[Rfam]
RNA sequence: GGGGACCUUCGGGGCCCUAUACCCACGGUGGGCACGCGCCCACCCCUACAUAGGCAGGACCACACCCCUGCCGUUUGCUAAACGGAAGACAGAAA
Numbered sequence: 001g002g003g004g005a006c007c008u009u010c011g012g013g014g015c016c017c018u019a020u021a022c023c024c025a026c027g028g029u030g031g032g033c034a035c036g037c038g039c040c041c042a043c044c045c046c047u048a049c050a051u052a053g054g055c056a057g058g059a060c061c062a063c064a065c066c067c068c069u070g071c072c073g074u075u076u077g078c079u080a081a082a083c084g085g086a087a088g089a090c091a092g093a094a095a
Stems, first nucleotide, its partner, number of pairs: 001018004006014003027072006